[Rfam]
RNA sequence: GAGCGCGUUGGAAGCUAGAUCCACGGGCGGUAGCGUG
Numbered sequence: 001g002a003g004c005g006c007g008u009u010g011g012a013a014g015c016u017a018g019a020u021c022c023a024c025g026g027g028c029g030g031u032a033g034c035g036u037g
Stems, first nucleotide, its partner, number of pairs: 009023004
Dot-bracket structure: ........((((.......))))..............
The family of this 37-nucleotide RNA sequence from Aeromonas simiae is "JUMPstart RNA". NCBI's taxonomy places the organism under Bacteria, Pseudomonadota, Gammaproteobacteria, Aeromonadaceae, Aeromonas. The match comes from Rfam's covariance-model search (41 bits).